[Rfam]
RNA sequence: CGAUUCGUGAGAUAUGUUUGAUAUUCUUGGUUGUUAUAUUUGAAACCGACCGAGAAUCGGACAUAUUUUACGGUCAC
Numbered sequence: 001c002g003a004u005u006c007g008u009g010a011g012a013u014a015u016g017u018u019u020g021a022u023a024u025u026c027u028u029g030g031u032u033g034u035u036a037u038a039u040u041u042g043a044a045a046c047c048g049a050c051c052g053a054g055a056a057u058c059g060g061a062c063a064u065a066u067u068u069u070a071c072g073g074u075c076a077c
Stems, first nucleotide, its partner, number of pairs: 005073005011067012024054002029051005
This 77-nucleotide sequence from Acyrthosiphon pisum belongs to the Rfam family "mir-190 microRNA precursor family".
The family is grouped with related families in Rfam's "mir-50 clan".
Its family is annotated with RISC complex and miRNA-mediated post-transcriptional gene silencing in the Gene Ontology.
NCBI's taxonomy places the organism under Eukaryota, Paraneoptera, Sternorrhyncha, Aphididae, Acyrthosiphon.
The family has 76 seed sequences and 1,667 matches in Rfam 15.1.
On this family, see Kloosterman et al., Nucleic Acids Res 2006: "Cloning and expression of new microRNAs from zebrafish".
The family's consensus secondary structure was predicted with RNAalifold.